[Rfam]
RNA sequence: CUCUUAUUCAGAGCAGUGGAGAUACAAAGGAUCUAAGAAGCUGCGGCAACCCCACAUUAUAAAGGAAGGUGCCAACCUGAGCGAGUUACUCGAACAAUAAGAG
Numbered sequence: 001c002u003c004u005u006a007u008u009c010a011g012a013g014c015a016g017u018g019g020a021g022a023u024a025c026a027a028a029g030g031a032u033c034u035a036a037g038a039a040g041c042u043g044c045g046g047c048a049a050c051c052c053c054a055c056a057u058u059a060u061a062a063a064g065g066a067a068g069g070u071g072c073c074a075a076c077c078u079g080a081g082c083g084a085g086u087u088a089c090u091c092g093a094a095c096a097a098u099a100a101g102a103g
Base pairs, nucleotide, nucleotide: 001103002102003101004100005099006098007097008096013044014043015042016041017040021033022032023031030078045073046072047071048070050069051068052065053064082092083091084090085089

This 103-nucleotide RNA sequence from [Ruminococcus] lactaris belongs to the Rfam family "SAM riboswitch aptamer (S box leader)". The family has 457 seed sequences and 9,625 matches in Rfam 15.1. Rfam's curators put it in the seed alignment.